TPP riboswitch aptamer (THI element): a 95-nucleotide RNA sequence from Dyella soli.
It scores 67 bits against the family's covariance model.
About the family: Vitamin B(1) in its active form thiamin pyrophosphate (TPP) is an essential coenzyme that is synthesised by coupling of pyrimidine and thiazole moieties in bacteria.
On this family, see Rodionov et al., J Biol Chem 2002: "Comparative genomics of thiamin biosynthesis in procaryotes. New genes and regulatory mechanisms".
NCBI's taxonomy places the organism under Bacteria, Gammaproteobacteria, Lysobacterales, Rhodanobacteraceae, Dyella.

[Rfam]
RNA sequence: CUACAGAAGCGGGGGUGCCGACCACAUUCGGCUGAGAGAGUCCCUUCGAACCUGAUCCGGUUAGCACCGGUGUAGGGAGCUUCGCCGCACGGGGU
Numbered sequence: 001c002u003a004c005a006g007a008a009g010c011g012g013g014g015g016u017g018c019c020g021a022c023c024a025c026a027u028u029c030g031g032c033u034g035a036g037a038g039a040g041u042c043c044c045u046u047c048g049a050a051c052c053u054g055a056u057c058c059g060g061u062u063a064g065c066a067c068c069g070g071u072g073u074a075g076g077g078a079g080c081u082u083c084g085c086c087g088c089a090c091g092g093g094g095u
Stems, first nucleotide, its partner, number of pairs: 006083005011045004016039001017032005051076004057070004
Dot-bracket structure: .....(((((((((.((((((......)))))......)..)))).....((((..((((......))))..))))..)))))............